[Rfam]
RNA: ffh sRNA
RNA sequence: UUUUGCAAGGAUCGCCCCCCGUCAGCGAGUUUCGCCCACGGGGGACAUUGGC
Numbered sequence: 001u002u003u004u005g006c007a008a009g010g011a012u013c014g015c016c017c018c019c020c021g022u023c024a025g026c027g028a029g030u031u032u033c034g035c036c037c038a039c040g041g042g043g044g045a046c047a048u049u050g051g052c
Stems, first nucleotide, its partner, number of pairs: 016044007025035004